[Rfam]
RNA sequence: GGUUGUAAUUCCGGCAAUCCGGAAGCGUUUCGGACGCGGGUUCGAUUCCCGCCACCUCCACCUAAGAGCAUCGCAAUCACGGUGGUGUUUUUAGAUGGGGGUGUACUGGUUUCGACGGGGCGAGAGAAGGAAAGCAGGCAACCCGAUAGGCGACGGACGUAAUCCGCGCAAAUCCACAAACGCCAACGAUGAGCGUUUUGCACUGGCCGCUUAA
Number, nucleotide and partner (000 for none) at each position: 001g143002g142003u141004u140005g139006u000007a000008a000009u000010u000011c000012c000013g000014g000015c000016a000017a000018u000019c000020c000021g000022g000023a000024a000025g000026c122027g121028u120029u000030u118031c117032g116033g000034a000035c000036g052037c051038g050039g049040g048041u000042u000043c000044g000045a000046u000047u000048c040049c039050c038051g037052c036053c103054a102055c101056c100057u099058c098059c097060a000061c000062c000063u000064a000065a000066g000067a000068g000069c000070a000071u000072c000073g000074c000075a000076a000077u000078c000079a000080c000081g000082g000083u000084g000085g000086u000087g000088u000089u000090u000091u000092u000093a000094g000095a000096u000097g059098g058099g057100g056101g055102u054103g053104u000105a000106c000107u000108g000109g000110u000111u000112u000113c000114g000115a000116c032117g031118g030119g000120g028121c027122g026123a000124g000125a000126g000127a000128a000129g000130g000131a000132a000133a000134g000135c000136a000137g000138g000139c005140a004141a003142c002143c001144c159145g158146a000147u156148a000149g000150g000151c000152g000153a000154c000155g000156g147157a000158c145159g144160u000161a000162a000163u000164c000165c000166g000167c000168g000169c000170a000171a000172a000173u000174c000175c000176a000177c000178a000179a000180a000181c000182g000183c000184c000185a000186a000187c000188g000189a000190u000191g000192a000193g000194c000195g000196u000197u000198u000199u000200g000201c000202a000203c000204u000205g000206g000207c000208c000209g000210c000211u000212u000213a000214a000